[Rfam]
RNA sequence: UUGCUCGAGGGAUGAUUAGUCCCUCAAAUCGAAAUGUAUUUUCUUAUCCGUCCACACUUUAUCAGCAAUUUUCGUUUUAGUAUCUUGCUGGUCAUUAAGGAUGGAAAAUUU
Numbered sequence: 001u002u003g004c005u006c007g008a009g010g011g012a013u014g015a016u017u018a019g020u021c022c023c024u025c026a027a028a029u030c031g032a033a034a035u036g037u038a039u040u041u042u043c044u045u046a047u048c049c050g051u052c053c054a055c056a057c058u059u060u061a062u063c064a065g066c067a068a069u070u071u072u073c074g075u076u077u078u079a080g081u082a083u084c085u086u087g088c089u090g091g092u093c094a095u096u097a098a099g100g101a102u103g104g105a106a107a108a109u110u111u
Stems, first nucleotide, its partner, number of pairs: 047105006061092008
The record is a 111-nucleotide RNA from Striga asiatica, which matches "Small nucleolar RNA snoR99" in Rfam.
The family's consensus secondary structure was predicted with WAR.
It scores 53 bits against the family's covariance model.
Rfam links the family to the GO terms RNA processing and nucleolus.
The literature on the family includes a 2002 paper in Curr Biol by Marker et al., "Experimental RNomics: identification of 140 candidates for small non-messenger RNAs in the plant Arabidopsis thaliana".